[Rfam]
RNA sequence: GGUUCAGUGGUCUAAUGGUUAUGAUUUUCGUCUCACACACGAAAGGUUCCCGGUUCGAUCCCGGGCUGGACCA
Numbered sequence: 001g002g003u004u005c006a007g008u009g010g011u012c013u014a015a016u017g018g019u020u021a022u023g024a025u026u027u028u029c030g031u032c033u034c035a036c037a038c039a040c041g042a043a044a045g046g047u048u049c050c051c052g053g054u055u056c057g058a059u060c061c062c063g064g065g066c067u068g069g070a071c072c073a
Stems, first nucleotide, its partner, number of pairs: 001072007010025003027043005049065005
The family of this 73-nucleotide RNA from Schizophyllum commune is "tRNA".
The base pairs follow the family's consensus structure, which is taken from published work.
Rfam classes the family as a transfer RNA.
The organism belongs to Schizophyllum commune, within Eukaryota.
It scores 60 bits against the family's covariance model.